[Rfam]
RNA sequence: GAUCACUGUGAUGGCUAACCAGGGCCCCUGACCUAUACAGGCCUCUAUUAUGGGGAUGAUGGCCAGUCCUGGUGUCUGAGUGAUU
Number, nucleotide and partner (000 for none) at each position: 001g085002a084003u083004c082005a081006c080007u000008g000009u000010g076011a075012u074013g000014g000015c000016u000017a000018a073019c072020c071021a070022g069023g068024g067025c066026c062027c061028c000029u059030g000031a057032c000033c055034u054035a000036u000037a000038c052039a051040g049041g048042c000043c000044u000045c000046u000047a000048u041049u040050a000051u039052g038053g000054g034055g033056a000057u031058g000059a029060u000061g027062g026063c000064c000065a000066g025067u024068c023069c022070u021071g020072g019073u018074g012075u011076c010077u000078g000079a000080g006081u005082g004083a003084u002085u001